[Rfam]
RNA sequence: GUUGAUGGGAAUGUUGUUUGGCUCGAGGCCAUCUAGGUUUGGUUUUUGAAAAAUUUUAAGACAGAGAUAUAUUAGCCCUAUAUGAUCUCGGACCAGGCUUCAUUCCCGUCAGC
Dot-bracket structure: (((((((((((((..((((((..(((.............................................................)))..))))))..)))))))))))))
This 113-nucleotide RNA sequence from Cephalotus follicularis belongs to the Rfam family "mir-166 microRNA precursor family". The organism belongs to Cephalotus, within Eukaryota. On this family, see Ambros, Cell 2001: "microRNAs: tiny regulators with great potential". It scores 84 bits against the family's covariance model. Rfam describes the family as follows. This family represents the plant microRNA (miRNA) precursor mir-166.